[Rfam]
The family of this 90-nucleotide sequence from Canis lupus is "mir-8799 microRNA precursor family". Lineage of the source: Eukaryota > Bilateria > Deuterostomia > Gnathostomata > Canis lupus. Pairs were carried over by alignment from the consensus structure, which was predicted with RNAalifold. The family has 7 seed sequences and 20,638 matches in Rfam 15.1. Gene Ontology terms of the family: miRNA-mediated post-transcriptional gene silencing and RISC complex.

RNA sequence: GGGGGAGGCCGGAUCCGGGGCUGUGUCCCGGCGCCCUGUGCUCCGGAGCCUGCGCUGUUGGAUUCGCGCUCCCGGACCGCGCAGCCCCCU
Numbered sequence: 001g002g003g004g005g006a007g008g009c010c011g012g013a014u015c016c017g018g019g020g021c022u023g024u025g026u027c028c029c030g031g032c033g034c035c036c037u038g039u040g041c042u043c044c045g046g047a048g049c050c051u052g053c054g055c056u057g058u059u060g061g062a063u064u065c066g067c068g069c070u071c072c073c074g075g076a077c078c079g080c081g082c083a084g085c086c087c088c089c090u
Stems, first nucleotide, its partner, number of pairs: 001090005008082002010079003015075002018072003022068004026062003029057006038050001040049003